RNA: U1A polyadenylation inhibition element (PIE)
Organism: Salvator merianae
RNA sequence: CGGCAAAGCUUUGCACCCAGCGUCUGACGGCCAGACAUUGCACCUGGAGCUUUUCCGUUUUGUCAAUAAAAUGGUUU
Numbered sequence: 001c002g003g004c005a006a007a008g009c010u011u012u013g014c015a016c017c018c019a020g021c022g023u024c025u026g027a028c029g030g031c032c033a034g035a036c037a038u039u040g041c042a043c044c045u046g047g048a049g050c051u052u053u054u055c056c057g058u059u060u061u062g063u064c065a066a067u068a069a070a071a072u073g074g075u076u077u
Base pairs, nucleotide, nucleotide: 005053006052007051008050009049017047018046019045020044022036023035024034025033026032